[Rfam]
RNA sequence: GUCGGGUAAGCGCAGGAGAUGUAGAGGCCGCUCUCACGAGUGGCAGCCUGUAAUGGGUGGGAUCCUCGGUUCCUGGGACCCUUCAACUU
Number, nucleotide and partner (000 for none) at each position: 001g084002u000003c000004g081005g080006g079007u078008a000009a000010g000011c076012g000013c075014a074015g073016g072017a000018g000019a000020u000021g070022u069023a000024g067025a066026g065027g044028c043029c042030g041031c040032u039033c038034u000035c000036a000037c000038g033039a032040g031041u030042g029043g028044c027045a000046g000047c057048c056049u055050g000051u000052a000053a000054u000055g049056g048057g047058u000059g000060g000061g000062a000063u000064c000065c026066u025067c024068g000069g022070u021071u000072c016073c015074u014075g013076g011077g000078a007079c006080c005081c004082u000083u000084c001085a000086a000087c000088u000089u000
RNA: DUF3800-VII RNA